[Rfam]
RNA sequence: CAGAGGGGCAGGACUUAGCUGGCUCUGUGAACAGGUCUCCCCGGGUUGGAUGUUCACAGUGGCUAAGUUCCACCUCGCUA
Numbered sequence: 001c002a003g004a005g006g007g008g009c010a011g012g013a014c015u016u017a018g019c020u021g022g023c024u025c026u027g028u029g030a031a032c033a034g035g036u037c038u039c040c041c042c043g044g045g046u047u048g049g050a051u052g053u054u055c056a057c058a059g060u061g062g063c064u065a066a067g068u069u070c071c072a073c074c075u076c077g078c079u080a
Base pairs, nucleotide, nucleotide: 011070012069013068014067015066016065017064018063019062020061027057028056029055030054031053032052033051
The family of this 80-nucleotide sequence from Leptobrachium leishanense is "mir-27 microRNA precursor family". The source organism's lineage runs through Eukaryota, Bilateria, Amphibia, Anura and Leptobrachium.